[Rfam]
RNA sequence: AGCUUGACCGGGUCGACCCCGCGGGUGACCACCAGGUAGUCGCGCAGCGCGAUGCCGUGCCGGCCCUC
Dot-bracket structure: ...(((.(..(((..(((.....))).)))....((((.(((((...)))))))))..).))).....
Numbered sequence: 001a002g003c004u005u006g007a008c009c010g011g012g013u014c015g016a017c018c019c020c021g022c023g024g025g026u027g028a029c030c031a032c033c034a035g036g037u038a039g040u041c042g043c044g045c046a047g048c049g050c051g052a053u054g055c056c057g058u059g060c061c062g063g064c065c066c067u068c
Stems, first nucleotide, its partner, number of pairs: 004063003008059001011030003016026003035056004040052005

Description
This 68-nucleotide sequence from Nakamurella multipartita belongs to the Rfam family "ASdes TB sRNA". The family's consensus secondary structure is taken from published work. Rfam's curators put it in the seed alignment. The family has 26 seed sequences and 1,192 matches in Rfam 15.1. The family's RNA type in Rfam is small RNA.